RNA sequence: AAUUCCGAGGAGCGUUGCGACGAAAGAUUCCUCUUUCGCCAGGCUCGGAUCAUCAACACCGCGCUCACGUUAC
Numbered sequence: 001a002a003u004u005c006c007g008a009g010g011a012g013c014g015u016u017g018c019g020a021c022g023a024a025a026g027a028u029u030c031c032u033c034u035u036u037c038g039c040c041a042g043g044c045u046c047g048g049a050u051c052a053u054c055a056a057c058a059c060c061g062c063g064c065u066c067a068c069g070u071u072a073c
Stems, first nucleotide, its partner, number of pairs: 004049005021038006